[Rfam]
RNA sequence: UAACCUUACCCUAAUAGUAAUACCGCUUAGUACAAGAGGAACUGUAGUUUUAGAUAAUUAGUUUUUGUAGCUGUCUAACUAGGCAUUGCUGCAAAGCUACUAUCUGCUAGAUUAUAGCUAAAUGCCUCUAAGUCAGAAUCCAUGCUAGAACAGGGUAAUUUCUGCCUGUACUAGUUA
Numbered sequence: 001u002a003a004c005c006u007u008a009c010c011c012u013a014a015u016a017g018u019a020a021u022a023c024c025g026c027u028u029a030g031u032a033c034a035a036g037a038g039g040a041a042c043u044g045u046a047g048u049u050u051u052a053g054a055u056a057a058u059u060a061g062u063u064u065u066u067g068u069a070g071c072u073g074u075c076u077a078a079c080u081a082g083g084c085a086u087u088g089c090u091g092c093a094a095a096g097c098u099a100c101u102a103u104c105u106g107c108u109a110g111a112u113u114a115u116a117g118c119u120a121a122a123u124g125c126c127u128c129u130a131a132g133u134c135a136g137a138a139u140c141c142a143u144g145c146u147a148g149a150a151c152a153g154g155g156u157a158a159u160u161u162c163u164g165c166c167u168g169u170a171c172u173a174g175u176u177a
Stems, first nucleotide, its partner, number of pairs: 006158007015147004022048002025045002052105005059099003067092005072085005108142001110140001115135001117133003167177002
RNA: Archaeal large subunit ribosomal RNA, nucleotides 3047 to 3223